The record is an 83-nucleotide RNA sequence from Eptesicus fuscus, which matches "mir-365 microRNA precursor family" in Rfam. Gene Ontology terms of the family: RISC complex and miRNA-mediated post-transcriptional gene silencing. Rfam 15.1 lists 1,300 matches to the family in 640 species.

RNA sequence: CAAGAAAAAUAAGGGACUUUCAGGGGCAGCUGUGUUUUCUGACUCAAGUCAUAAUGCCCCUAAAAAUCCUUAUUGCUCUUGCA
Numbered sequence: 001c002a003a004g005a006a007a008a009a010u011a012a013g014g015g016a017c018u019u020u021c022a023g024g025g026g027c028a029g030c031u032g033u034g035u036u037u038u039c040u041g042a043c044u045c046a047a048g049u050c051a052u053a054a055u056g057c058c059c060c061u062a063a064a065a066a067u068c069c070u071u072a073u074u075g076c077u078c079u080u081g082c083a
Stems, first nucleotide, its partner, number of pairs: 012071005018065003022061007031053004